[Rfam]
Nucleotides: 106
Stems, first nucleotide, its partner, number of pairs: 043099006057085004062079004
Number, partner (000 for none) and nucleotide at each position: 001000c002000a003000u004000u005000u006000u007000a008000a009000u010000u011000u012000g013000g014000u015000u016000c017000a018000g019000a020000g021000u022000c023000u024000g025000a026000a027000a028000a029000a030000a031000c032000u033000c034000a035000u036000a037000g038000a039000u040000u041000u042000a043099g044098u045097g046096u047095u048094g049000u050000c051000u052000a053000u054000c055000a056000g057085c058084u059083u060082c061000a062079u063078c064077u065076u066000u067000u068000g069000a070000u071000a072000c073000c074000a075000c076065g077064a078063g079062a080000a081000u082060g083059g084058a085057g086000a087000c088000a089000a090000a091000u092000a093000u094048c095047a096046g097045c098044a099043c100000g101000a102000c103000a104000u105000u106000g